Shown here is a 53-nucleotide RNA sequence, a member of the family "ffh sRNA".
On this family, see Meyer et al., BMC Genomics 2009: "Identification of candidate structured RNAs in the marine organism 'Candidatus Pelagibacter ubique'".
It is annotated as a small RNA.
RNA sequence: CAUGUUCAGGAUCGCCCCCCGUCAGCGAGGUUUCGCCCACGGGGUCAAUUUUG
Numbered sequence: 001c002a003u004g005u006u007c008a009g010g011a012u013c014g015c016c017c018c019c020c021g022u023c024a025g026c027g028a029g030g031u032u033u034c035g036c037c038c039a040c041g042g043g044g045u046c047a048a049u050u051u052u053g
Base pairs, nucleotide, nucleotide: 017044018043019042020041021040022039025036026035027034028033